[Rfam]
A member of the RNA family "Actinobacteria sRNA Ms_IGR-5" from Mycolicibacterium chubuense, 185 nucleotides long. It is annotated as a small RNA.
RNA sequence: ACACAGGGAAGGAGGUGGUCCGACAAAUUGAUUGACUUAUGGACAUGUGAGGUGGCUGCGAGCUAGCAGCGCCGGGGGAGCGCUUGUCGCACACCUGCGCGCGCUGGCGAAUUCCCCGCAGUCACCCGGCCCCCGAGCCCCUCGGUUGAGUCCGACCAGGAACAACGGCUCGGGGGCCGCUCCAU
Dot-bracket structure: ..............(((((...................................)))))..((((((.((((.(((.................)))..))))))))))..................(((((((((((((.((.(((........))).))......)))))))))))))......